[Rfam]
RNA sequence: GGAGUUGACUAGGCAGUCGCCGCUUGCGUAAGCAAGGGGAGGAAAGUCCGGGCUUCAUAGGGCAGAGUGCCAGGUAACGCCUGGGAGGCGCGAGCCUACGACAAGUGCAGCAGAGAGCAAACCGCCGAUGGCUAUCUUCGGAUAGCACAGGUAAGGGUGAAAGGGUGCGGUAAGAGCGCACCGCGCGACUGGCAACAGUUCGUGGCAUGGUAAACUCCACUCGAAGCAAGACCAAAUAGGUUCCCUAUAGGCGCGGCCCGCGCUGGGAACGGGUAGGUUGCUUGAGCCUGUGAGUGAUUGCAGGCCUAGACGAAUGACUGUUCAAGACAGAACCCGGCUUAUCGGCUGACUCCAAAA
Number, nucleotide and partner (000 for none) at each position: 001g353002g352003a351004g350005u349006u348007g347008a000009c345010u344011a342012g322013g321014c320015a319016g318017u317018c316019g000020c039021c038022g000023c036024u035025u034026g033027c032028g000029u000030a000031a000032g027033c026034a025035a024036g023037g000038g021039g020040a000041g000042g000043a000044a340045a339046g338047u000048c337049c336050g335051g334052g333053c226054u225055u224056c223057a000058u000059a000060g259061g258062g257063c256064a000065g222066a221067g220068u219069g218070c084071c083072a082073g081074g080075u000076a000077a000078c000079g000080c074081c073082u072083g071084g070085g099086a097087g096088g095089c094090g000091c000092g000093a000094g089095c088096c087097u086098a000099c085100g217101a216102c000103a000104a000105g215106u214107g211108c210109a000110g000111c000112a000113g000114a000115g000116a000117g000118c000119a000120a000121a000122c156123c155124g152125c151126c150127g000128a000129u000130g000131g146132c145133u144134a143135u142136c141137u000138u000139c000140g000141g136142a135143u134144a133145g132146c131147a000148c000149a000150g126151g125152u124153a000154a000155g123156g122157g000158u000159g000160a000161a000162a000163g000164g182165g181166u180167g179168c178169g177170g000171u000172a000173a000174g000175a000176g000177c169178g168179c167180a166181c165182c164183g206184c204185g203186c202187g201188a200189c198190u197191g196192g000193c000194a000195a000196c191197a190198g189199u000200u188201c187202g186203u185204g184205g000206c183207a000208u000209g000210g108211u107212a000213a000214a106215c105216u101217c100218c069219a068220c067221u066222c065223g056224a055225a054226g053227c000228a000229a000230g279231a278232c277233c276234a000235a000236a000237u000238a000239g000240g270241u269242u268243c267244c266245c265246u000247a000248u000249a000250g264251g263252c262253g261254c260255g000256g063257c062258c061259c060260g254261c253262g252263c251264u250265g245266g244267g243268a242269a241270c240271g000272g000273g000274u000275a000276g233277g232278u231279u230280g000281c000282u000283u000284g000285a000286g305287c304288c303289u302290g301291u300292g299293a298294g000295u000296g000297a000298u293299u292300g291301c290302a289303g288304g287305c286306c000307u000308a000309g000310a000311c000312g000313a000314a000315u000316g018317a017318c016319u015320g014321u013322u012323c000324a000325a000326g000327a000328c000329a000330g000331a000332a000333c052334c051335c050336g049337g048338c046339u045340u044341a000342u011343c000344g010345g009346c000347u007348g006349a005350c004351u003352c002353c001354a000355a000356a000357a000
The family of this 357-nucleotide sequence from Thalassolituus oleivorans is "Bacterial RNase P class A". Ribonuclease P (RNase P) is a ubiquitous endoribonuclease, found in archaea, bacteria and eukarya as well as chloroplasts and mitochondria. Rfam classes the family as a ribozyme. Its family is annotated with dimeric ribonuclease P complex, tRNA processing and ribonuclease P activity in the Gene Ontology.